RNA sequence: CAACCAUCAAGAGCGGCUGAGAGAUCUGGCUCCGUGACGCCGCAGCAACCCUCCGCGUGAGCGGGUGUGGGUGCUUCCGCCAGAACCGAUGGAGG
Dot-bracket structure: (..(((((....(((((...(((..[[[[)))......)))))((((.(((.((.........)).)..))))))...(]]]]...))))))..)
RNA: SAM riboswitch aptamer (S box leader)